Shown here is a 75-nucleotide RNA sequence, a member of the family "RAGATH-18 RNA". About the family: Actinobacteria, Firmicutes, Fusobacteria, Thermotogae (1 example).
RNA sequence: ACUGUGGAGUAUACAAGAACUUGUGAGUAGCAUAUCUGUUUACAGAUUGUAAAAGCAUAUACGAUGAAGCAGUAA
Number, nucleotide and partner (000 for none) at each position: 001a073002c072003u071004g070005u069006g000007g000008a000009g062010u061011a060012u059013a058014c000015a000016a000017g000018a000019a000020c000021u000022u057023g056024u055025g000026a000027g000028u000029a000030g050031c049032a048033u000034a000035u046036c045037u000038g000039u000040u000041u000042a000043c000044a000045g036046a035047u000048u032049g031050u030051a000052a000053a000054a000055g024056c023057a022058u013059a012060u011061a010062c009063g000064a000065u000066g000067a000068a000069g005070c004071a003072g002073u001074a000075a000